[Rfam]
RNA sequence: GCUGUAAUGUGUGCAUAGUAUCAUCUAUGUCUGGUAGCAGUAUCUGUCUGUGUUUUGCAUUCAGAUCUUGCUGUCCACACAGAUAUCCUGCAGCCAAAGAGUAAAUUGGGAUCAUAGUACUGGUCUAGUGUUGUCUUUCUGGACACAUUCACCACUGGCCAGCCUCCAAAAUCCCACACAGAA
Numbered sequence: 001g002c003u004g005u006a007a008u009g010u011g012u013g014c015a016u017a018g019u020a021u022c023a024u025c026u027a028u029g030u031c032u033g034g035u036a037g038c039a040g041u042a043u044c045u046g047u048c049u050g051u052g053u054u055u056u057g058c059a060u061u062c063a064g065a066u067c068u069u070g071c072u073g074u075c076c077a078c079a080c081a082g083a084u085a086u087c088c089u090g091c092a093g094c095c096a097a098a099g100a101g102u103a104a105a106u107u108g109g110g111a112u113c114a115u116a117g118u119a120c121u122g123g124u125c126u127a128g129u130g131u132u133g134u135c136u137u138u139c140u141g142g143a144c145a146c147a148u149u150c151a152c153c154a155c156u157g158g159c160c161a162g163c164c165u166c167c168a169a170a171a172u173c174c175c176a177c178a179c180a181g182a183a
Stems, first nucleotide, its partner, number of pairs: 013091003028081003032077003035073006042066005049059003107176005120162006127156004132147003136143002